[Rfam]
RNA sequence: UUUCAACCGAAUCCGCGACCGAAGACAGCAGGGGCCUUGACGCUUAAUCAGCCUGCCGAGGUUGGCACAUGGGAAGUACGCCUCCAGGCUUUUUCCCUUUGCGCCUCGCUUCGAAUAUCGGCGGGGCGAUUUUUUUGCCCAACC
Number, nucleotide and partner (000 for none) at each position: 001u000002u000003u000004c000005a000006a000007c000008c000009g000010a000011a000012u000013c000014c000015g000016c000017g000018a000019c000020c000021g000022a000023a000024g000025a000026c000027a000028g056029c055030a054031g053032g052033g000034g043035c042036c000037u000038u000039g000040a000041c000042g035043c034044u000045u000046a000047a000048u000049c000050a000051g000052c032053c031054u030055g029056c028057c000058g000059a000060g000061g000062u000063u000064g000065g000066c000067a000068c000069a000070u000071g000072g000073g000074a000075a000076g000077u000078a000079c000080g000081c000082c000083u000084c000085c000086a000087g000088g000089c000090u000091u000092u000093u000094u000095c000096c000097c000098u000099u000100u000101g000102c128103g127104c126105c125106u124107c123108g122109c121110u120111u000112c000113g000114a000115a000116u000117a000118u000119c000120g110121g109122c108123g107124g106125g105126g104127c103128g102129a000130u000131u000132u000133u000134u000135u000136u000137g000138c000139c000140c000141a000142a000143c000144c000
RNA: Ribosomal protein L10 leader
Organism: Gloeobacter violaceus